Antisense RNA which regulates isiA expression: a 178-nucleotide RNA sequence from Fischerella thermalis. It scores 129 bits against the family's covariance model. The literature on the family includes a 2006 paper in Proc Natl Acad Sci U S A by Duhring et al., "An internal antisense RNA regulates expression of the photosynthesis gene isiA". Lineage of the source: Bacteria > Bacillati > Cyanobacteriota > Fischerella > Fischerella thermalis.
[Rfam]
RNA sequence: AAUAACUAAAUAUUUUGACUGGGUCUAAAUUCGGGUUACUAAUCAAACGCACAUCUCCUAAAUGGGUAUCAUAAACUCCUCCAAAAAACAUGGCUUUUAGAACUAAUAAGAAUGCACCAAAACCCAAAACAAUCAGGUGAUGUCCUAAGAUUAAACCCAGUUUUUGCGAGUCAUUCCA
Numbered sequence: 001a002a003u004a005a006c007u008a009a010a011u012a013u014u015u016u017g018a019c020u021g022g023g024u025c026u027a028a029a030u031u032c033g034g035g036u037u038a039c040u041a042a043u044c045a046a047a048c049g050c051a052c053a054u055c056u057c058c059u060a061a062a063u064g065g066g067u068a069u070c071a072u073a074a075a076c077u078c079c080u081c082c083a084a085a086a087a088a089c090a091u092g093g094c095u096u097u098u099a100g101a102a103c104u105a106a107u108a109a110g111a112a113u114g115c116a117c118c119a120a121a122a123c124c125c126a127a128a129a130c131a132a133u134c135a136g137g138u139g140a141u142g143u144c145c146u147a148a149g150a151u152u153a154a155a156c157c158c159a160g161u162u163u164u165u166g167c168g169a170g171u172c173a174u175u176c177c178a
Stems, first nucleotide, its partner, number of pairs: 136175006145168001148165001